[Rfam]
Nucleotides: 152
Base pairs, nucleotide, nucleotide: 001152002151003150005148006147007146009144010143011142012141013140014139015138016137018135019134020133021132023130024129025128026127027126029124030123031122032121033120034119035118036117039114040113042111043110045108046107051102052101053100057096058095059094060093061092062091063090064089065088066087067086074085
Number, partner (000 for none) and nucleotide at each position: 001152g002151a003150u004000a005148a006147a007146u008000g009144g010143a011142u012141u013140u014139a015138u016137c017000c018135g019134u020133g021132a022000g023130a024129u025128g026127a027126c028000g029124u030123g031122g032121u033120u034119g035118u036117u037000c038000c039114a040113u041000c042111u043110a044000a045108g046107a047000u048000g049000a050000g051102g052101a053100c054000g055000u056000g057096g058095c059094a060093u061092c062091c063090u064089a065088u066087u067086a068000a069000u070000u071000u072000c073000a074085u075000g076000c077000g078000a079000u080000g081000g082000c083000u084000g085074a086067u087066a088065a089064u090063a091062g092061g093060a094059u095058g096057c097000c098000a099000u100053g101052u102051u103000c104000u105000c106000g107046u108045c109000c110043u111042a112000g113040g114039u115000g116000a117036a118035a119034c120033a121032g122031u123030c124029a125000c126027g127026u128025c129024a130023u131000a132021u133020c134019g135018c136000g137016g138015g139014u140013g141012a142011a143010u144009c145000c146007a147006u148005u149000c150003a151002u152001u